[Rfam]
RNA sequence: GAUCAAGAAGUUCGGCCCUUUCUUAAGCCUCUCGGCUGGCCGACUGGCAACCGCAAGCGUUUUUCGCGGUGCCCCCGAGAGAAGAUCCGUCGCCGCGUCAGGCGUACCCGCCCCGGCGAAAGUAACGCAC
Numbered sequence: 001g002a003u004c005a006a007g008a009a010g011u012u013c014g015g016c017c018c019u020u021u022c023u024u025a026a027g028c029c030u031c032u033c034g035g036c037u038g039g040c041c042g043a044c045u046g047g048c049a050a051c052c053g054c055a056a057g058c059g060u061u062u063u064u065c066g067c068g069g070u071g072c073c074c075c076c077g078a079g080a081g082a083a084g085a086u087c088c089g090u091c092g093c094c095g096c097g098u099c100a101g102g103c104g105u106a107c108c109c110g111c112c113c114c115g116g117c118g119a120a121a122g123u124a125a126c127g128c129a130c
Base pairs, nucleotide, nucleotide: 001087002086003085004084009045012043013042014041015040016039026037027036046073047072048071051069052068053067055064056063090119091118092117093116094115095114097112